[Rfam]
Shown here is a 192-nucleotide sequence from Daucus carota, a member of the family "MIR159 microRNA precursor family".
Rfam links the family to the GO terms RISC complex and miRNA-mediated post-transcriptional gene silencing.
Lineage of the source: Eukaryota > asterids > Apiineae > Daucus > Daucus carota.
Nucleotides: 192
Base pairs, nucleotide, nucleotide: 013178014177015176016175017174019172020171023168024167025166026165027164028163029162036155060132061131063129064128065127069123070122071121072120077115
Number, partner (000 for none) and nucleotide at each position: 001000a002000a003000a004000u005000a006000g007000a008000a009000a010000a011000g012000g013178g014177a015176g016175c017174u018000c019172c020171c021000u022000u023168c024167a025166g026165u027164c028163c029162a030000a031000g032000c033000a034000a035000a036155g037000a038000g039000a040000a041000g042000a043000a044000a045000a046000g047000g048000a049000g050000u051000u052000a053000u054000a055000u056000u057000a058000a059000u060132c061131u062000c063129c064128c065127g066000c067000a068000u069123c070122a071121u072120u073000c074000a075000c076000a077115c078000a079000u080000u081000c082000a083000c084000a085000g086000c087000a088000g089000c090000c091000c092000a093000g094000u095000a096000g097000c098000g099000u100000g101000u102000u103000u104000c105000u106000a107000c108000u109000g110000u111000g112000u113000u114000u115077g116000a117000g118000u119000g120072a121071a122070u123069g124000a125000g126000u127065c128064g129063g130000c131061a132060g133000c134000u135000a136000a137000u138000u139000c140000a141000a142000u143000c144000c145000u146000u147000u148000g149000c150000c151000c152000u153000g154000c155036c156000c157000a158000u159000g160000a161000g162029u163028g164027g165026a166025c167024u168023g169000a170000a171020g172019g173000a174017a175016g176015c177014u178013c179000c180000u181000u182000u183000u184000u185000c186000a187000g188000u189000u190000u191000u192000a